A member of the RNA family "Glutamine-II riboswitch aptamer" from Synechococcus sp. RCC307, 57 nucleotides long.
Nucleotides: 057
Base pairs, nucleotide, nucleotide: 004047005046006045007044008043010021011020012019013018032057033056034055035054036053037052038050039049
Number, partner (000 for none) and nucleotide at each position: 001000u002000c003000a004047c005046g006045u007044u008043g009000a010021u011020c012019c013018c014000u015000a016000a017000g018013g019012g020011g021010a022000u023000g024000c025000a026000g027000c028000u029000c030000g031000a032057u033056u034055c035054c036053a037052g038050u039049c040000a041000g042000g043008c044007a045006a046005c047004g048000g049039g050038g051000g052037c053036u054035g055034g056033a057032a
A reference for the family is Huang et al. (2019), "Structure and ligand binding of the glutamine-II riboswitch", Nucleic Acids Res. Rfam links the family to the GO term glutamine binding. The sequence is in the family's curated seed alignment.